[Rfam]
RNA sequence: AAUGAGAUGGUUGUAGUAAGCAUCUUAGUUGCCUACUGCAAUUUAGGCUUGCUAGAAUAGAAAAGUCUAACCUAUUCCAGGGGUCUCUGCUUUGUGAGGUCACUUGUUAUAUAGACUUGGACAAC
Numbered sequence: 001a002a003u004g005a006g007a008u009g010g011u012u013g014u015a016g017u018a019a020g021c022a023u024c025u026u027a028g029u030u031g032c033c034u035a036c037u038g039c040a041a042u043u044u045a046g047g048c049u050u051g052c053u054a055g056a057a058u059a060g061a062a063a064a065g066u067c068u069a070a071c072c073u074a075u076u077c078c079a080g081g082g083g084u085c086u087c088u089g090c091u092u093u094g095u096g097a098g099g100u101c102a103c104u105u106g107u108u109a110u111a112u113a114g115a116c117u118u119g120g121a122c123a124a125c
Stems, first nucleotide, its partner, number of pairs: 011045001012040004017035002020032003063118007073111003078106004086099003
Shown here is a 125-nucleotide RNA from Pampusana beccarii, a member of the family "Small nucleolar RNA SNORA28". The source organism's lineage runs through Eukaryota, Chordata, Teleostomi, Sauria and Pampusana. About the family: ACA28 is a member of the H/ACA class of snoRNA that guide the sites of modification of uridines to pseudouridines. Clan: SNORA28 clan. For this family Rfam cites "RNomics: an experimental approach that identifies 201 candidates for novel, small, non-messenger RNAs in mouse" (Huttenhofer et al., EMBO J, 2001). It is annotated as an H/ACA-box small nucleolar RNA. Gene Ontology terms of the family: RNA processing and nucleolus.